[Rfam]
RNA sequence: UUUCCCAUUUUAGUACCGCUUUUUUGCCUUUCAAAACAAGCGGCUAUGCUAAUGGGAUAGAGAAAAUUGCUAUGGUCUGAAAGGGAAGUUGAUUUGUUGCAGCUUUCCUCAUAUGAAAUAGCAGUACAUAUUUCA
Numbered sequence: 001u002u003u004c005c006c007a008u009u010u011u012a013g014u015a016c017c018g019c020u021u022u023u024u025u026g027c028c029u030u031u032c033a034a035a036a037c038a039a040g041c042g043g044c045u046a047u048g049c050u051a052a053u054g055g056g057a058u059a060g061a062g063a064a065a066a067u068u069g070c071u072a073u074g075g076u077c078u079g080a081a082a083g084g085g086a087a088g089u090u091g092a093u094u095u096g097u098u099g100c101a102g103c104u105u106u107c108c109u110c111a112u113a114u115g116a117a118a119u120a121g122c123a124g125u126a127c128a129u130a131u132u133u134c135a
Base pairs, nucleotide, nucleotide: 004056005055006054007053016043017042018041019040069122070121071120072119085110086109
Rfam assigns this 135-nucleotide RNA from Xenopus tropicalis to the family "Small nucleolar RNA SNORA29". The literature on the family includes a 2001 paper in EMBO J by Huttenhofer et al., "RNomics: an experimental approach that identifies 201 candidates for novel, small, non-messenger RNAs in mouse". By type it is an H/ACA-box small nucleolar RNA. ACA29 is a member of the H/ACA class of snoRNA that guide the sites of modification of uridines to pseudouridines. It scores 97 bits against the family's covariance model. Its family is annotated with RNA processing and nucleolus in the Gene Ontology.